[Rfam]
RNA: Plant small nucleolar RNA U3
Organism: Malus domestica
RNA sequence: ACCAGCUUACUUGAACAGGAUCUGUUCUAUAGGAUCGUGCCUCUGUAUCCUUGAUUUCUAAGGAGACAGGAACCCCAAUUUGGUGGAUGAAUAAUGACCGUGCGAUCAGAGCGUGAAUAACAGUUUCUGGUUCCUUGGUUCCAUGAAGCAGUAGAUGAUCGUUCUCAGCCAGUUUCUGUCUGGGGUGGUCGCACGGUAGUCUGACAGGUU
Numbered sequence: 001a002c003c004a005g006c007u008u009a010c011u012u013g014a015a016c017a018g019g020a021u022c023u024g025u026u027c028u029a030u031a032g033g034a035u036c037g038u039g040c041c042u043c044u045g046u047a048u049c050c051u052u053g054a055u056u057u058c059u060a061a062g063g064a065g066a067c068a069g070g071a072a073c074c075c076c077a078a079u080u081u082g083g084u085g086g087a088u089g090a091a092u093a094a095u096g097a098c099c100g101u102g103c104g105a106u107c108a109g110a111g112c113g114u115g116a117a118u119a120a121c122a123g124u125u126u127c128u129g130g131u132u133c134c135u136u137g138g139u140u141c142c143a144u145g146a147a148g149c150a151g152u153a154g155a156u157g158a159u160c161g162u163u164c165u166c167a168g169c170c171a172g173u174u175u176c177u178g179u180c181u182g183g184g185g186u187g188g189u190c191g192c193a194c195g196g197u198a199g200u201c202u203g204a205c206a207g208g209u210u
Stems, first nucleotide, its partner, number of pairs: 001038002006032002013027006043069004048064006078209005097197012110163004120152002123149005128143003165183004170178003